[Rfam]
RNA sequence: AAGACCUUUAAUCAUAGUCCAGAGAGGCUAGCAAGGUGACAAUAAGUACGGUUAUGUAGGGAUUAGUGUAUCUAAAGCCUCUUUUGUCACCUUGCGUGUCAAAAGAGGUUUUUGCA
Numbered sequence: 001a002a003g004a005c006c007u008u009u010a011a012u013c014a015u016a017g018u019c020c021a022g023a024g025a026g027g028c029u030a031g032c033a034a035g036g037u038g039a040c041a042a043u044a045a046g047u048a049c050g051g052u053u054a055u056g057u058a059g060g061g062a063u064u065a066g067u068g069u070a071u072c073u074a075a076a077g078c079c080u081c082u083u084u085u086g087u088c089a090c091c092u093u094g095c096g097u098g099u100c101a102a103a104a105g106a107g108g109u110u111u112u113u114g115c116a
Stems, first nucleotide, its partner, number of pairs: 004037005015030005043074002046071005052065001054063002075111012088098003
The family of this 116-nucleotide sequence from Tenuibacillus multivorans is "PyrR binding site".
Rfam's curators write: This family represents the PyrR binding site and terminator structure. This RNA structure is found upstream of a variety of genes involved in pyrimidine biosynthesis and transport. The alignment also includes a portion of the antiterminator structure.
Taxonomically the source falls in Tenuibacillus (Bacteria, Bacillota, Bacilli, Caryophanales).